Rfam assigns this 77-nucleotide RNA from Suicoccus acidiformans to the family "Fluoride riboswitch aptamer (crcB RNA motif)". The match comes from Rfam's covariance-model search (48 bits). Lineage of the source: Bacteria > Bacillota > Bacilli > Aerococcaceae > Suicoccus. The base pairs follow the family's consensus structure, which is taken from published work.
[Rfam]
RNA sequence: UUCAUAAACGGGAAUGAGGUUCUCCCGAAGUUAGAUAUAACUUAAACCGCUGAUAAGCUGAUGACUUCUGUGAUUAU
Numbered sequence: 001u002u003c004a005u006a007a008a009c010g011g012g013a014a015u016g017a018g019g020u021u022c023u024c025c026c027g028a029a030g031u032u033a034g035a036u037a038u039a040a041c042u043u044a045a046a047c048c049g050c051u052g053a054u055a056a057g058c059u060g061a062u063g064a065c066u067u068c069u070g071u072g073a074u075u076a077u
Stems, first nucleotide, its partner, number of pairs: 010026004016068006049058003